Source information:
Group II catalytic intron D1-D4-4: a 140-nucleotide RNA from Paraburkholderia sp. BL23I1N1. The family has 90 seed sequences and 840 matches in Rfam 15.1. On this family, see Chu et al., EMBO J 2001: "Control of branch-site choice by a group II intron". It scores 94 bits against the family's covariance model. Rfam's curators write: Group II introns are found in rRNA, tRNA and mRNA of organelles in fungi, plants and protists, and also in mRNA in bacteria.

RNA sequence: CAGUGGGUGCAAGCCCCACCCGGCACCCGCUCCAGCCGGAAGCAACCGGAGCAAUCGUGGAGGUAACGAAGCGGUUGAAGCCUUCGGUGAAGCGUGUCACGAAAUACGGUGACAGCGCGAGUAUGCAGGCCGUAACGCGA
Numbered sequence: 001c002a003g004u005g006g007g008u009g010c011a012a013g014c015c016c017c018a019c020c021c022g023g024c025a026c027c028c029g030c031u032c033c034a035g036c037c038g039g040a041a042g043c044a045a046c047c048g049g050a051g052c053a054a055u056c057g058u059g060g061a062g063g064u065a066a067c068g069a070a071g072c073g074g075u076u077g078a079a080g081c082c083u084u085c086g087g088u089g090a091a092g093c094g095u096g097u098c099a100c101g102a103a104a105u106a107c108g109g110u111g112a113c114a115g116c117g118c119g120a121g122u123a124u125g126c127a128g129g130c131c132g133u134a135a136c137g138c139g140a
Stems, first nucleotide, its partner, number of pairs: 020039005047086005052077006062067001095114006117133003